RNA sequence: CCGCCUGAUCCGGGGAGAUGUAGUGGAUGUGGGUGUCCAGGCCACCGGCGGUGAUGAUGUGGUGCUCACCGGCGAUGAUUUCGGUGUUGACGCCGACCGGGAUGUCGAUGUCGUCUUGGACGUCCGGGUUGCCGGCCUUGCCGAUGCCGGAGAUGCGGCCGUCGGUGAUGCCGAUGUCGGCCUUGUACACGCCGGUGUGGUCGAUGAUGAGGGCGCGGGUGAUGACGGUGUCCGGCACGCCUUCGUCACGGGUGAGGCGGCCGUUCUGGCCCAUGCCGUCACGG
Number, nucleotide and partner (000 for none) at each position: 001c000002c284003g000004c283005c000006u281007g280008a279009u000010c150011c149012g148013g147014g070015g067016a066017g065018a000019u000020g000021u000022a000023g000024u047025g046026g045027a000028u044029g043030u000031g042032g000033g000034u039035g000036u000037c000038c000039a034040g000041g000042c031043c029044a028045c026046c025047g024048g000049c000050g000051g063052u062053g000054a000055u000056g000057a000058u000059g000060u000061g000062g052063u051064g000065c017066u016067c015068a000069c000070c014071g142072g141073c000074g000075a138076u000077g136078a000079u134080u000081u000082c000083g000084g132085u131086g130087u000088u128089g124090a123091c122092g000093c000094c000095g000096a000097c118098c000099g117100g116101g115102a114103u113104g000105u110106c000107g000108a000109u000110g105111u000112c000113g103114u102115c101116u100117u099118g097119g000120a000121c000122g091123u090124c089125c000126g000127g000128g088129u000130u086131g085132c084133c000134g079135g000136c077137c000138u075139u000140g000141c072142c071143g000144a000145u000146g000147c013148c012149g011150g010151a000152g000153a000154u000155g000156c000157g000158g270159c269160c268161g267162u000163c000164g265165g264166u263167g262168a000169u260170g000171c257172c256173g000174a000175u000176g000177u000178c000179g000180g214181c213182c212183u211184u210185g000186u000187a000188c000189a000190c000191g000192c000193c000194g000195g202196u000197g000198u000199g000200g000201u000202c195203g000204a000205u000206g000207a000208u000209g000210a184211g183212g182213g181214c180215g000216c000217g000218g000219g249220u000221g000222a246223u000224g244225a243226c000227g000228g240229u239230g238231u000232c000233c000234g000235g000236c000237a000238c230239g229240c228241c000242u000243u225244c224245g000246u222247c000248a000249c219250g000251g000252g000253u000254g000255a000256g172257g171258c000259g000260g169261c000262c167263g166264u165265u164266c000267u161268g160269g159270c158271c000272c000273a000274u000275g000276c000277c000278g000279u008280c007281a006282c000283g004284g002
Shown here is a 284-nucleotide RNA from Corynebacterium maris, a member of the family "5' ureB small RNA". It scores 90 bits against the family's covariance model. A reference for the family is Wen et al. (2013), "Helicobacter pylori 5'ureB-sRNA, a cis-encoded antisense small RNA, negatively regulates ureAB expression by transcription termination", J Bacteriol. The family has 13 seed sequences and 4,812 matches in Rfam 15.1. Lineage of the source: Bacteria > Bacillati > Mycobacteriales > Corynebacteriaceae > Corynebacterium maris.